[Rfam]
Nucleotides: 392
Base pairs, nucleotide, nucleotide: 045081046080048078049077050076051075096220097219098218099217100216110213111212112211132183133182134181135180136179137178138177155168156167157166158165159164238250239249240248241247268374269373270372271371272370273369274299275298276297277296315361316360317359318358334353335352336351337350338349339348340347341346
Number, partner (000 for none) and nucleotide at each position: 001000a002000c003000a004000a005000c006000a007000a008000a009000a010000a011000u012000a013000a014000a015000a016000a017000c018000u019000g020000g021000u022000a023000c024000c025000u026000c027000u028000a029000g030000a031000a032000c033000a034000a035000c036000a037000a038000c039000a040000u041000g042000a043000a044000a045081c046080g047000a048078c049077u050076c051075u052000g053000a054000c055000a056000c057000a058000a059000u060000a061000a062000a063000a064000a065000u066000a067000a068000g069000c070000a071000c072000g073000g074000c075051a076050g077049a078048g079000a080046c081045g082000g083000c084000g085000c086000a087000a088000a089000c090000u091000g092000a093000u094000u095000u096220u097219u098218u099217u100216g101000g102000a103000g104000a105000g106000g107000a108000u109000a110213c111212g112211c113000g114000u115000u116000u117000c118000g119000g120000g121000g122000c123000u124000a125000g126000u127000u128000c129000c130000c131000g132183c133182a134181g135180u136179c137178g138177g139000a140000c141000a142000g143000a144000g145000a146000a147000c148000a149000a150000u151000a152000a153000a154000a155168c156167u157166a158165c159164c160000u161000u162000g163000a164159g165158g166157u167156a168155g169000c170000g171000c172000c173000c174000a175000g176000a177138c178137u179136g180135a181134c182133u183132g184000g185000a186000u187000c188000a189000c190000u191000u192000g193000g194000u195000g196000a197000u198000c199000a200000u201000c202000g203000c204000g205000a206000u207000a208000u209000c210000g211112g212111c213110g214000a215000u216100c217099a218098a219097a220096g221000a222000a223000a224000u225000a226000c227000g228000u229000u230000u231000g232000c233000u234000c235000u236000u237000g238250g239249c240248c241247c242000g243000g244000c245000u246000g247241g248240g249239g250238c251000c252000g253000a254000c255000u256000g257000a258000a259000g260000c261000a262000g263000c264000u265000u266000c267000a268374g269373g270372g271371u272370g273369g274299c275298g276297g277296u278000c279000g280000a281000c282000a283000a284000g285000a286000a287000c288000a289000a290000c291000a292000a293000c294000a295000g296277a297276u298275c299274g300000a301000g302000c303000a304000c305000a306000a307000g308000a309000a310000g311000a312000a313000c314000a315361a316360a317359g318358c319000a320000c321000a322000a323000a324000g325000u326000c327000g328000a329000u330000u331000u332000g333000g334353a335352g336351g337350g338349g339348a340347g341346c342000u343000c344000a345000g346341g347340c348339u349338c350337c351336c352335c353334u354000u355000c356000g357000u358318g359317c360316u361315u362000u363000g364000g365000c366000a367000g368000g369273u370272c371271a372270c373269c374268c375000u376000g377000c378000c379000u380000a381000c382000u383000c384000c385000c386000g387000c388000a389000g390000c391000c392000u

A member of the RNA family "Pseudomonas sRNA CrcZ" from Azotobacter chroococcum, 392 nucleotides long. The family's RNA type in Rfam is small RNA. Pairs were carried over by alignment from the consensus structure, which was predicted with WAR. Gene Ontology term of the family: carbon catabolite repression of transcription.